This 79-nucleotide RNA from Amborella trichopoda belongs to the Rfam family "Small nucleolar RNA R160". Pairs were carried over by alignment from the consensus structure. The family has 9 seed sequences and 799 matches in Rfam 15.1. Rfam describes the family as follows. snoR160 is a C/D box small nucleolar RNA, which acts as a methylation guide for 25S ribosomal RNA in plants. snoR160 has been alternatively named snoZ270 in rice. The match comes from Rfam's covariance-model search (44 bits).

RNA sequence: AGCAAAAUGUUGGAGGUUAAUGUUCUGAAUCUGUGAUUUUGAUAACUGAUGCAGUGGUCAGCAAAGUACCCUUAUUGCU
Numbered sequence: 001a002g003c004a005a006a007a008u009g010u011u012g013g014a015g016g017u018u019a020a021u022g023u024u025c026u027g028a029a030u031c032u033g034u035g036a037u038u039u040u041g042a043u044a045a046c047u048g049a050u051g052c053a054g055u056g057g058u059c060a061g062c063a064a065a066g067u068a069c070c071c072u073u074a075u076u077g078c079u
Stems, first nucleotide, its partner, number of pairs: 001079005